[Rfam]
RNA: S15-Halobacteria ribosomal protein leader
Organism: Halostagnicola sp. A56
RNA sequence: GUGGGAACCGCACGGCCGCAAAUCUGACCCCGUCGCCCGCUCUCUUUGGGCGACUCGAGAUUGCGGAAGUGC
Numbered sequence: 001g002u003g004g005g006a007a008c009c010g011c012a013c014g015g016c017c018g019c020a021a022a023u024c025u026g027a028c029c030c031c032g033u034c035g036c037c038c039g040c041u042c043u044c045u046u047u048g049g050g051c052g053a054c055u056c057g058a059g060a061u062u063g064c065g066g067a068a069g070u071g072c
Stems, first nucleotide, its partner, number of pairs: 010072004016066006024059002032054007